[Rfam]
RNA sequence: UGGCGGGGGUCCGCACAAGCGGCGGAGCAUGUGGUUUAAUUCGAUGCUGCCCGAAGAACCUUACCAGGGUUUGACAUGCUGGUGGUAGGAACCUGAAAGGGGGACGACCCAACCGUAAGGGAGGGAGCCAGCACAGGUGUUGCAUGGCUGUCGUCAGCUCGUGCCGUGAGGUGUCGGCUUAAGUGCCGUAACGAGCGCAACCCUCAUCCCUAAUUGCUCCUGACAGGUAAAAGGGUCAGAGCACAAUAGGGAGACCGCUGGCGAAGAGCCAGAGGAAGGGGAGGAUGACGUCAAGUCAGCAUGGCCUUUAUGCCCUGGGCUACACACAUGCUACAAUGCAGGGUACAACGGGAAGCGAAGCCGCGAGGUGGAGCAAAUCCCCAAAAGCCCUGCUCAGUUCGGAUCGCACGCUGCAAUUCGCGUGCGUGAAGUCGGAGUCGCUAGUAACCGUGGAUCAGCAAAGCCGCGGUGAAUACGUUCUCGGGCCUUGCACACACCGCCCGUCAAGCCACCCGAGUCGGGUUCACCAGAAGGCCGGUAACCGAAGAGGGCCGGACGACGGUGUGCCUGGUAAGGAGGGCUAAGUCGUAACAAGG
Numbered sequence: 001u002g003g004c005g006g007g008g009g010u011c012c013g014c015a016c017a018a019g020c021g022g023c024g025g026a027g028c029a030u031g032u033g034g035u036u037u038a039a040u041u042c043g044a045u046g047c048u049g050c051c052c053g054a055a056g057a058a059c060c061u062u063a064c065c066a067g068g069g070u071u072u073g074a075c076a077u078g079c080u081g082g083u084g085g086u087a088g089g090a091a092c093c094u095g096a097a098a099g100g101g102g103g104a105c106g107a108c109c110c111a112a113c114c115g116u117a118a119g120g121g122a123g124g125g126a127g128c129c130a131g132c133a134c135a136g137g138u139g140u141u142g143c144a145u146g147g148c149u150g151u152c153g154u155c156a157g158c159u160c161g162u163g164c165c166g167u168g169a170g171g172u173g174u175c176g177g178c179u180u181a182a183g184u185g186c187c188g189u190a191a192c193g194a195g196c197g198c199a200a201c202c203c204u205c206a207u208c209c210c211u212a213a214u215u216g217c218u219c220c221u222g223a224c225a226g227g228u229a230a231a232a233g234g235g236u237c238a239g240a241g242c243a244c245a246a247u248a249g250g251g252a253g254a255c256c257g258c259u260g261g262c263g264a265a266g267a268g269c270c271a272g273a274g275g276a277a278g279g280g281g282a283g284g285a286u287g288a289c290g291u292c293a294a295g296u297c298a299g300c301a302u303g304g305c306c307u308u309u310a311u312g313c314c315c316u317g318g319g320c321u322a323c324a325c326a327c328a329u330g331c332u333a334c335a336a337u338g339c340a341g342g343g344u345a346c347a348a349c350g351g352g353a354a355g356c357g358a359a360g361c362c363g364c365g366a367g368g369u370g371g372a373g374c375a376a377a378u379c380c381c382c383a384a385a386a387g388c389c390c391u392g393c394u395c396a397g398u399u400c401g402g403a404u405c406g407c408a409c410g411c412u413g414c415a416a417u418u419c420g421c422g423u424g425c426g427u428g429a430a431g432u433c434g435g436a437g438u439c440g441c442u443a444g445u446a447a448c449c450g451u452g453g454a455u456c457a458g459c460a461a462a463g464c465c466g467c468g469g470u471g472a473a474u475a476c477g478u479u480c481u482c483g484g485g486c487c488u489u490g491c492a493c494a495c496a497c498c499g500c501c502c503g504u505c506a507a508g509c510c511a512c513c514c515g516a517g518u519c520g521g522g523u524u525c526a527c528c529a530g531a532a533g534g535c536c537g538g539u540a541a542c543c544g545a546a547g548a549g550g551g552c553c554g555g556a557c558g559a560c561g562g563u564g565u566g567c568c569u570g571g572u573a574a575g576g577a578g579g580g581c582u583a584a585g586u587c588g589u590a591a592c593a594a595g596g
Base pairs, nucleotide, nucleotide: 001494002493003491004490005489007488008487009486010485011484012483013482015478016477019441020440021439022438023437024334026332027331028330029329030328031327032326033325034323035322040055041054042053043052064318065317066316067315068314069313070312077133078132079131080130081129082128083127088105092101093100094099108125109124110123136307137306139305140304141303142302145301146300147296148295149294150292152290153289157196158195159194160193161192162191163172164171165170175188176187177186178185202284203283204282205281207252208251209250210249211248212247217241218240222237223236224235255275256274258272259271260270261269262268338393339392340391341390342389343388344387350381351380352379355374356373360369361368362367400431405426406425407424408423409422410421411420447470448469449468450467451466452465453464497595499592502588503587507582508581509580510579513576514575517572518571519570520569521568522567523566525564526563527562528561533557535555536554537553538552539551542549
A member of the RNA family "Bacterial small subunit ribosomal RNA" from Coprothermobacter proteolyticus, 596 nucleotides of a longer RNA. The family has 99 seed sequences and 42,628 matches in Rfam 15.1. Gene Ontology terms of the family: structural constituent of ribosome and ribosome. Taxonomically the source falls in Coprothermobacter proteolyticus (Bacteria, Coprothermobacterota, Coprothermobacteria, Coprothermobacteraceae).